[Rfam]
RNA: MIR7725 microRNA precursor family
RNA sequence: ACGCUGGCGAAUGAAGGAAAUCGCUCGCGGUAUGCUCCGACCGCCUCUUCCUGCACUAAAGUCGGACCUCACCAAUCAGGAGCUGCUUUGACACGCAGCUCCUGAUUGGUGAGGUCCGACUUUAGUGCAGGAAGAGGCGGUCGGAGCAUACCGCGAGCGAUUUCCUUUACUCGCCGGCGC
Numbered sequence: 001a002c003g004c005u006g007g008c009g010a011a012u013g014a015a016g017g018a019a020a021u022c023g024c025u026c027g028c029g030g031u032a033u034g035c036u037c038c039g040a041c042c043g044c045c046u047c048u049u050c051c052u053g054c055a056c057u058a059a060a061g062u063c064g065g066a067c068c069u070c071a072c073c074a075a076u077c078a079g080g081a082g083c084u085g086c087u088u089u090g091a092c093a094c095g096c097a098g099c100u101c102c103u104g105a106u107u108g109g110u111g112a113g114g115u116c117c118g119a120c121u122u123u124a125g126u127g128c129a130g131g132a133a134g135a136g137g138c139g140g141u142c143g144g145a146g147c148a149u150a151c152c153g154c155g156a157g158c159g160a161u162u163u164c165c166u167u168u169a170c171u172c173g174c175c176g177g178c179g180c
Stems, first nucleotide, its partner, number of pairs: 002179002005176006012169007020161018044137004049132012062119025